[Rfam]
RNA sequence: AGCAAGUACUACUGUAAAUCACCUUGGAUAAAAGUGUCUGCUAAAUGGCAUAUA
Numbered sequence: 001a002g003c004a005a006g007u008a009c010u011a012c013u014g015u016a017a018a019u020c021a022c023c024u025u026g027g028a029u030a031a032a033a034g035u036g037u038c039u040g041c042u043a044a045a046u047g048g049c050a051u052a053u054a
Stems, first nucleotide, its partner, number of pairs: 013043001014041003020036003024032002
The record is a 54-nucleotide RNA sequence from Oncorhynchus kisutch, which matches "UnaL2 LINE 3' element" in Rfam. Pairs were carried over by alignment from the consensus structure, which is taken from published work. NCBI's taxonomy places the organism under Eukaryota, Teleostei, Osteoglossocephalai, Salmonidae, Oncorhynchus. A search with the family's covariance model found it, with a score of 58 bits. On this family, see Baba et al., RNA 2004: "Solution structure of an RNA stem-loop derived from the 3' conserved region of eel LINE UnaL2".